A member of the RNA family "radC RNA", 147 nucleotides long.
RNA sequence: ACACUAUCAGCAUGUUCCGCUGCUCCGCCAGCGACAUGCCCAGGUAGCCACGAUCCUUAAGGCUACGGCGCGGUUCCGACCGCGUUGAUCGUCCCAGUUCGCCCAGGCAUCCCGCGCGCGAACGCUCAUCGUUUCGAUGAUGGAUGC
Number, nucleotide and partner (000 for none) at each position: 001a000002c000003a000004c000005u000006a000007u000008c000009a000010g000011c038012a037013u036014g035015u000016u033017c000018c000019g032020c031021u030022g029023c027024u000025c000026c000027g023028c000029c022030a021031g020032c019033g016034a000035c014036a013037u012038g011039c000040c000041c000042a000043g000044g066045u065046a064047g063048c062049c061050a000051c000052g090053a089054u088055c087056c000057u000058u000059a000060a000061g049062g048063c047064u046065a045066c044067g086068g085069c084070g083071c082072g081073g080074u000075u000076c000077c000078g000079a000080c073081c072082g071083c070084g069085u068086u067087g055088a054089u053090c052091g000092u000093c000094c000095c000096a000097g000098u000099u000100c000101g000102c000103c000104c000105a000106g000107g000108c000109a000110u000111c000112c000113c000114g000115c000116g000117c000118g147119c146120g145121a000122a000123c000124g000125c000126u140127c139128a138129u137130c136131g135132u000133u000134u000135c131136g130137a129138u128139g127140a126141u000142g000143g000144a000145u120146g119147c118